[Rfam]
RNA sequence: CCCAAUCUUACAUGAUGAAAUAAGUGUUGGUAGGGACAUCUGAGUUAAAUUGAGGAAACGCCAACCAUUCUGACUGGUUGGG
Numbered sequence: 001c002c003c004a005a006u007c008u009u010a011c012a013u014g015a016u017g018a019a020a021u022a023a024g025u026g027u028u029g030g031u032a033g034g035g036a037c038a039u040c041u042g043a044g045u046u047a048a049a050u051u052g053a054g055g056a057a058a059c060g061c062c063a064a065c066c067a068u069u070c071u072g073a074c075u076g077g078u079u080g081g082g
Base pairs, nucleotide, nucleotide: 001082002081003080004079005078